[Rfam]
RNA sequence: CAGGCCAGAAGAGGCGCGUUGCCCAGAAAAUCGUAUCCGAGGAACCAGUAACAAGGACGAUACGUGAGGGGGAGCAACGCCGAGAUGAUAAAGCGGCUGGUCACGCUUAUUGUCGGCUGCAGGGGCUGAAUCCUCUGGGUUGUCACCAGAAACGUUCGCAGUCGAGCGUUUCAUAUCCGGCUCAAAAGGCUGGAUAGACAAGGUGGAGCACUUCUGGGUAA
Numbered sequence: 001c002a003g004g005c006c007a008g009a010a011g012a013g014g015c016g017c018g019u020u021g022c023c024c025a026g027a028a029a030a031u032c033g034u035a036u037c038c039g040a041g042g043a044a045c046c047a048g049u050a051a052c053a054a055g056g057a058c059g060a061u062a063c064g065u066g067a068g069g070g071g072g073a074g075c076a077a078c079g080c081c082g083a084g085a086u087g088a089u090a091a092a093g094c095g096g097c098u099g100g101u102c103a104c105g106c107u108u109a110u111u112g113u114c115g116g117c118u119g120c121a122g123g124g125g126c127u128g129a130a131u132c133c134u135c136u137g138g139g140u141u142g143u144c145a146c147c148a149g150a151a152a153c154g155u156u157c158g159c160a161g162u163c164g165a166g167c168g169u170u171u172c173a174u175a176u177c178c179g180g181c182u183c184a185a186a187a188g189g190c191u192g193g194a195u196a197g198a199c200a201a202g203g204u205g206g207a208g209c210a211c212u213u214c215u216g217g218g219u220a221a
Base pairs, nucleotide, nucleotide: 006216007215008214009213010212011211016080017079018078019077020076021075022074024072032064033063034062035061036060037059084114085113086112087111088110089109091108092107093106094105095104115141116140117139118138120137121136122135123134124133125132143206144205145204146203147202
RNA: Lysine riboswitch aptamer